[Rfam]
The family of this 89-nucleotide sequence from Sinorhizobium terangae is "Rhizobiales sRNA Atu_Ti3". On this family, see Wilms et al., RNA Biol 2012: "Deep sequencing uncovers numerous small RNAs on all four replicons of the plant pathogen Agrobacterium tumefaciens". Pairs were carried over by alignment from the consensus structure, which was predicted with WAR. The source organism's lineage runs through Bacteria, Pseudomonadota, Alphaproteobacteria, Rhizobiaceae and Sinorhizobium.
RNA sequence: GGACCUCUGUUCCGCUUGCUUGCGCCGAGCCGCAACCUCAUCGCCAGGAUAGGCGAAUUGUACGCUGUAGUAGAGCUCAGGCUGCUCUU
Numbered sequence: 001g002g003a004c005c006u007c008u009g010u011u012c013c014g015c016u017u018g019c020u021u022g023c024g025c026c027g028a029g030c031c032g033c034a035a036c037c038u039c040a041u042c043g044c045c046a047g048g049a050u051a052g053g054c055g056a057a058u059u060g061u062a063c064g065c066u067g068u069a070g071u072a073g074a075g076c077u078c079a080g081g082c083u084g085c086u087c088u089u
Base pairs, nucleotide, nucleotide: 002082004080053065054064055063